[Rfam]
RNA sequence: GGGGGCGGUGGUUCGGGCGACAAGUACCAAGGACUGUGAAGCAAGGACUAAAACCUCACCCCACUUGGCCUCUCCCCAAAGAGUCACCCAUAUGGGGGACUUGGGCGUGCGCGGGUGGAUGGUGGGGGUAUGGUCGCGGCAAACAACCUCACACAGACGACGGCCCCGGCUGGGACUGCAAUCCCGACCGAGGCCUGACCAACCAGGAAGAGUGAAGCUUCCCA
Numbered sequence: 001g002g003g004g005g006c007g008g009u010g011g012u013u014c015g016g017g018c019g020a021c022a023a024g025u026a027c028c029a030a031g032g033a034c035u036g037u038g039a040a041g042c043a044a045g046g047a048c049u050a051a052a053a054c055c056u057c058a059c060c061c062c063a064c065u066u067g068g069c070c071u072c073u074c075c076c077c078a079a080a081g082a083g084u085c086a087c088c089c090a091u092a093u094g095g096g097g098g099a100c101u102u103g104g105g106c107g108u109g110c111g112c113g114g115g116u117g118g119a120u121g122g123u124g125g126g127g128g129u130a131u132g133g134u135c136g137c138g139g140c141a142a143a144c145a146a147c148c149u150c151a152c153a154c155a156g157a158c159g160a161c162g163g164c165c166c167c168g169g170c171u172g173g174g175a176c177u178g179c180a181a182u183c184c185c186g187a188c189c190g191a192g193g194c195c196u197g198a199c200c201a202a203c204c205a206g207g208a209a210g211a212g213u214g215a216a217g218c219u220u221c222c223c224a
Stems, first nucleotide, its partner, number of pairs: 007203001009201002016077002019074001084099002087096003110138005162195004168189002172185004206222005
Shown here is a 224-nucleotide RNA from Actinacidiphila oryziradicis, a member of the family "Streptomyces sRNA 4677". It is annotated as a small RNA. Located in the intergenic region between anti-sigma factor SCO4677 gene and a putative regulatory protein gene SCO4676. scr4677 expression requires the SCO4677 activity and scr4677 sRNA itself seem to affect the levels of the SCO4676-associated transcripts.